[Rfam]
RNA sequence: AGACUGCGAUCAUAUAAGACCUAGCGGACGGGGGCUGCGAUGCCCCCCGCCUCCACCAAAAGACCUCGUGAUGAGCGGGGCAUGGUCCUCGGACCAUCAGGCCAAACCUCCUCCGAGUCAGGGCUUGUUCCAUGGGGGCGAAUUAGGAUCGACGUGGGUGAAUAAGGGUCGUUUAGACGUUGGGUGAGGCACGCCCGCUAAUCCCCAUCCGGGGAAAGGCUCGUCCAACAACUUGUGAAUGUCGCAAAUGACAACCACAAUGCUCAGGAUCUGCGCGUAGCCGCCUAA
Numbered sequence: 001a002g003a004c005u006g007c008g009a010u011c012a013u014a015u016a017a018g019a020c021c022u023a024g025c026g027g028a029c030g031g032g033g034g035c036u037g038c039g040a041u042g043c044c045c046c047c048c049g050c051c052u053c054c055a056c057c058a059a060a061a062g063a064c065c066u067c068g069u070g071a072u073g074a075g076c077g078g079g080g081c082a083u084g085g086u087c088c089u090c091g092g093a094c095c096a097u098c099a100g101g102c103c104a105a106a107c108c109u110c111c112u113c114c115g116a117g118u119c120a121g122g123g124c125u126u127g128u129u130c131c132a133u134g135g136g137g138g139c140g141a142a143u144u145a146g147g148a149u150c151g152a153c154g155u156g157g158g159u160g161a162a163u164a165a166g167g168g169u170c171g172u173u174u175a176g177a178c179g180u181u182g183g184g185u186g187a188g189g190c191a192c193g194c195c196c197g198c199u200a201a202u203c204c205c206c207a208u209c210c211g212g213g214g215a216a217a218g219g220c221u222c223g224u225c226c227a228a229c230a231a232c233u234u235g236u237g238a239a240u241g242u243c244g245c246a247a248a249u250g251a252c253a254a255c256c257a258c259a260a261u262g263c264u265c266a267g268g269a270u271c272u273g274c275g276c277g278u279a280g281c282c283g284c285c286u287a288a
Base pairs, nucleotide, nucleotide: 008170009169010168011167020158021157022156024155025154026153030047031046032045033044034043048140049139050138051137052136053135054134

Background:
Shown here is a 288-nucleotide RNA from Skermanella stibiiresistens, a member of the family "permuted transfer-messenger RNA". Bacterial tmRNA, also known as 10Sa RNA or SsrA, is named for its dual tRNA and mRNA-like properties. Its role is to liberate the mRNA from a stalled ribosome. The source organism's lineage runs through Bacteria, Pseudomonadota, Azospirillaceae, Skermanella and Skermanella stibiiresistens. Rfam links the family to the GO term RNA catabolic process. Rfam classes the family as a non-coding RNA gene.